[Rfam]
RNA sequence: AAAGUGUCGUAUGCAACUGCUAUGGAUUGGUUCAUAGCUGUUUGCUUUGCUUUC
Number, nucleotide and partner (000 for none) at each position: 001a000002a053003a052004g000005u000006g051007u000008c049009g000010u000011a046012u000013g045014c044015a042016a041017c040018u000019g038020c037021u000022a035023u034024g033025g032026a031027u000028u000029g000030g000031u026032u025033c024034a023035u022036a000037g020038c019039u000040g017041u016042u015043u000044g014045c013046u011047u000048u000049g008050c000051u006052u003053u002054c000
Editing element of GABA-3 exon 9: a 54-nucleotide sequence from Neomonachus schauinslandi. On this family, see Ohlson et al., RNA 2007: "Editing modifies the GABA(A) receptor subunit alpha3". The match comes from Rfam's covariance-model search (68 bits). The organism belongs to Neomonachus, within Eukaryota.